[Rfam]
RNA sequence: CUCUUUAUGCUUUUGAUUGUUGCUCAGAAAGCCUUGAUUAUGAUAUUGGCUUUCGGGCAAUAAUCAUAAUCACGAAAGGG
Numbered sequence: 001c002u003c004u005u006u007a008u009g010c011u012u013u014u015g016a017u018u019g020u021u022g023c024u025c026a027g028a029a030a031g032c033c034u035u036g037a038u039u040a041u042g043a044u045a046u047u048g049g050c051u052u053u054c055g056g057g058c059a060a061u062a063a064u065c066a067u068a069a070u071c072a073c074g075a076a077a078g079g080g
Stems, first nucleotide, its partner, number of pairs: 001080006011069002014066004019061007027054007
Shown here is an 80-nucleotide RNA from Apis mellifera, a member of the family "mir-315 microRNA precursor family". The organism belongs to Apis, within Eukaryota.